[Rfam]
RNA sequence: UGAGUGCGUAGGACGGGUGGGCUCGAACCGGGUUCGAGCGAGGGGCGAAAGCCCCGAAGCAGCGCCGCCGCAGGCGGCGACCCGGAGGGCGAGGGCCGCAGGCCCGGGUAAUCCACCCCCCUCCACCA
Numbered sequence: 001u002g003a004g005u006g007c008g009u010a011g012g013a014c015g016g017g018u019g020g021g022c023u024c025g026a027a028c029c030g031g032g033u034u035c036g037a038g039c040g041a042g043g044g045g046c047g048a049a050a051g052c053c054c055c056g057a058a059g060c061a062g063c064g065c066c067g068c069c070g071c072a073g074g075c076g077g078c079g080a081c082c083c084g085g086a087g088g089g090c091g092a093g094g095g096c097c098g099c100a101g102g103c104c105c106g107g108g109u110a111a112u113c114c115a116c117c118c119c120c121c122u123c124c125a126c127c128a
Stems, first nucleotide, its partner, number of pairs: 015119003020114002023111001024091002028088001033086004039056002063079006